[Rfam]
RNA sequence: ACUGCUGAGCCAUCUCUCCAGCCCCAAUUUUUAAAUUUUUUUAAUUUAAAAAACAAUGAGGGGGCUGGAGAGAUGGCUCAGUGGU
Numbered sequence: 001a002c003u004g005c006u007g008a009g010c011c012a013u014c015u016c017u018c019c020a021g022c023c024c025c026a027a028u029u030u031u032u033a034a035a036u037u038u039u040u041u042u043a044a045u046u047u048a049a050a051a052a053a054c055a056a057u058g059a060g061g062g063g064g065c066u067g068g069a070g071a072g073a074u075g076g077c078u079c080a081g082u083g084g085u
Base pairs, nucleotide, nucleotide: 002084003083004082005081006080007079008078009077010076011075012074013073014072015071016070017069018068019067020066021065022064023063024062
Dot-bracket structure: .(((((((((((((((((((((((.....................................))))))))))))))))))))))).
Rfam assigns this 85-nucleotide RNA from Nannospalax galili to the family "mir-3473 microRNA precursor family". Taxonomically the source falls in Nannospalax (Eukaryota, Craniata, Glires, Spalacidae). Rfam 15.1 lists 1,094 matches to the family in 20 species. It scores 76 bits against the family's covariance model. Pairs were carried over by alignment from the consensus structure, which was predicted with RNAalifold.